[Rfam]
This 83-nucleotide sequence from Ammoniphilus oxalaticus belongs to the Rfam family "c-di-GMP-I riboswitch aptamer". The source organism's lineage runs through Bacteria, Bacillota, Caryophanales, Paenibacillaceae and Ammoniphilus. A search with the family's covariance model found it, with a score of 49 bits.

RNA sequence: AACCUUCUAGGGCAAACUCGAACGAAAGGCGAGGGCGCAAAGUCACAGAUCUACGUUGUUAAUAGGAUGGCUGGGCUACGGGG
Numbered sequence: 001a002a003c004c005u006u007c008u009a010g011g012g013c014a015a016a017c018u019c020g021a022a023c024g025a026a027a028g029g030c031g032a033g034g035g036c037g038c039a040a041a042g043u044c045a046c047a048g049a050u051c052u053a054c055g056u057u058g059u060u061a062a063u064a065g066g067a068u069g070g071c072u073g074g075g076c077u078a079c080g081g082g083g
Stems, first nucleotide, its partner, number of pairs: 012038002017033004023028001041077004046073003049068003056062002